[Rfam]
RNA sequence: GCCCAUGCAGUGACCACAGAUCGAGUGAACUAUUCUUUCACCUUUUAUUAAAGAAUACUGUGUGCGCGGUGCAAAUAGUGGCAUACACCUAUUUUUGGAGGAUACAUGUUCAAUGAUUCC
Numbered sequence: 001g002c003c004c005a006u007g008c009a010g011u012g013a014c015c016a017c018a019g020a021u022c023g024a025g026u027g028a029a030c031u032a033u034u035c036u037u038u039c040a041c042c043u044u045u046u047a048u049u050a051a052a053g054a055a056u057a058c059u060g061u062g063u064g065c066g067c068g069g070u071g072c073a074a075a076u077a078g079u080g081g082c083a084u085a086c087a088c089c090u091a092u093u094u095u096u097g098g099a100g101g102a103u104a105c106a107u108g109u110u111c112a113a114u115g116a117u118u119c120c
Base pairs, nucleotide, nucleotide: 003081004080005079006078008071009070011068012067015064016063017062018061031057032056033055034054035053036052037051038050101119102118105115106114